[Rfam]
RNA sequence: AACACCAGAAGAGGCGCGAUAGCCAGGUAAAUAGCAAGAGGAACCACAUUCCUUUGAUUGUUAUUGAGGGGGACUAUCGCCGAGGACAUUGUCUUGUGUGGCAAGCAAAGUUCGGUCACUAGGGUUGAAUCCCUAGGAUUGUCACCGUUUACGUAAGAACGUAAACAGGGUGGAGAGCUUCUGGCUGA
Numbered sequence: 001a002a003c004a005c006c007a008g009a010a011g012a013g014g015c016g017c018g019a020u021a022g023c024c025a026g027g028u029a030a031a032u033a034g035c036a037a038g039a040g041g042a043a044c045c046a047c048a049u050u051c052c053u054u055u056g057a058u059u060g061u062u063a064u065u066g067a068g069g070g071g072g073a074c075u076a077u078c079g080c081c082g083a084g085g086a087c088a089u090u091g092u093c094u095u096g097u098g099u100g101g102c103a104a105g106c107a108a109a110g111u112u113c114g115g116u117c118a119c120u121a122g123g124g125u126u127g128a129a130u131c132c133c134u135a136g137g138a139u140u141g142u143c144a145c146c147g148u149u150u151a152c153g154u155a156a157g158a159a160c161g162u163a164a165a166c167a168g169g170g171u172g173g174a175g176a177g178c179u180u181c182u183g184g185c186u187g188a
Base pairs, nucleotide, nucleotide: 006183007182008181009180010179011178016080017079018078019077020076021075022074024072030065031064032063033062034061035060036059037058084113085112086111087110089108090107091106092105094103114140115139116138117137119136120135121134122133123132124131142173143172144171145170146169148167
Notes:
Lysine riboswitch aptamer: a 188-nucleotide RNA from Thalassotalea algicola. The source organism's lineage runs through Bacteria, Pseudomonadati, Gammaproteobacteria, Alteromonadales and Thalassotalea. About the family: Riboswitches are metabolite binding domains within certain messenger RNAs that serve as precision sensors for their corresponding targets. It scores 99 bits against the family's covariance model. Pairs were carried over by alignment from the consensus structure, which is taken from published work.